RNA sequence: GCUGAGCCUCGUGACGUGGGCUUGUAAUCCAAGUGGGGGCUAAGAGGUGAUUGAACAUUGGUUCAGCUUUAGAUGGUUCGGUCUGGAUCUGCUUUAUUCUGGCUUGUCUGUUUCAACCCAUGAGUUAAACCAUGGCAUCCUAGUGAAGAUAAGGGUGUCAUGGCUCCUAGAGUGGAGGGUACAGCGUGAUGCUGGUUUCACAGAGCAGCGACUACCUCUUUCUCUCGACAGUGAAAAGAUAACGGGCUGGUGUUGUUUGGAUCCAAAAUGGUUUAAUGAGCUGGUCUGAUUGGACCAUCACUUUU
Dot-bracket structure: (((((((((........))))))....(((....))))))..(((((((((.(..(((((..(((((.(((...((((.((((((((.(.(.(.....(((((((((((.(((((...(..(((...(.((((((((((((.((....)).)))))))))))).).(....).(((((......(((....(((......)))....)))....)))))..)))..)....)))))))...))))))))).)).)))))))))......))))...))))))))..))).))..).)))))))))
RNA: Plant signal recognition particle RNA